Enterococcus sRNA 84: a 92-nucleotide RNA from Enterococcus sp. PFB1-1. Taxonomically the source falls in Enterococcus (Bacteria, Bacillota, Lactobacillales, Enterococcaceae). The match comes from Rfam's covariance-model search (78 bits). The family's RNA type in Rfam is antisense RNA. For this family Rfam cites "Whole-genome mapping of 5' RNA ends in bacteria by tagged sequencing: a comprehensive view in Enterococcus faecalis" (Innocenti et al., RNA, 2015). The family has 5 seed sequences and 30 matches in Rfam 15.1.
RNA sequence: AACCAACAACAACCUUUUUAUUUUUCAUUUUACUCCUUCCUGGAGUAAUAACUCCUUUUCCGUCGAGCCUAACCACCUCGGCGGUUUUUUGU
Numbered sequence: 001a002a003c004c005a006a007c008a009a010c011a012a013c014c015u016u017u018u019u020a021u022u023u024u025u026c027a028u029u030u031u032a033c034u035c036c037u038u039c040c041u042g043g044a045g046u047a048a049u050a051a052c053u054c055c056u057u058u059u060c061c062g063u064c065g066a067g068c069c070u071a072a073c074c075a076c077c078u079c080g081g082c083g084g085u086u087u088u089u090u091g092u
Stems, first nucleotide, its partner, number of pairs: 030048006060084008070075001